Background:
The family of this 106-nucleotide RNA sequence from Paenisporosarcina sp. HGH0030 is "SAM riboswitch aptamer (S box leader)". A search with the family's covariance model found it, with a score of 94 bits. Pairs were carried over by alignment from the consensus structure, which is taken from published work.
[Rfam]
RNA sequence: UACUUAUCAAGAGAGGUGGAGGGAAAGGCCCUUUGAAACCUCGGCAACAGACUCAUUAUGAGCACUGUGCCAAUUCCUUCAAGCGAUUAUGCUUGGAAGAUGAGUU
Numbered sequence: 001u002a003c004u005u006a007u008c009a010a011g012a013g014a015g016g017u018g019g020a021g022g023g024a025a026a027g028g029c030c031c032u033u034u035g036a037a038a039c040c041u042c043g044g045c046a047a048c049a050g051a052c053u054c055a056u057u058a059u060g061a062g063c064a065c066u067g068u069g070c071c072a073a074u075u076c077c078u079u080c081a082a083g084c085g086a087u088u089a090u091g092c093u094u095g096g097a098a099g100a101u102g103a104g105u106u
Stems, first nucleotide, its partner, number of pairs: 002105007013042005021031003025079004043071004048067002050063001053061001075098001080095006